Rfam assigns this 112-nucleotide sequence from Artemisia annua to the family "U5 spliceosomal RNA". A search with the family's covariance model found it, with a score of 59 bits. The organism belongs to Artemisia, within Eukaryota. About the family: U5 RNA is a component of both types of known spliceosome.
[Rfam]
RNA sequence: GACUAGUGAAAGGCCACGCAACUAUUCUUUCGCCUUUUACUAAAGAAUACCGUGUGCUCGUUGUAUAAAAUGGCAUACGCUAAUUUUUGGAGAGUCCCUUUUAUCAAGGAUU
Numbered sequence: 001g002a003c004u005a006g007u008g009a010a011a012g013g014c015c016a017c018g019c020a021a022c023u024a025u026u027c028u029u030u031c032g033c034c035u036u037u038u039a040c041u042a043a044a045g046a047a048u049a050c051c052g053u054g055u056g057c058u059c060g061u062u063g064u065a066u067a068a069a070a071u072g073g074c075a076u077a078c079g080c081u082a083a084u085u086u087u088u089g090g091a092g093a094g095u096c097c098c099u100u101u102u103a104u105c106a107a108g109g110a111u112u
Stems, first nucleotide, its partner, number of pairs: 001062003005058004010053001023049008091112001094111004099106001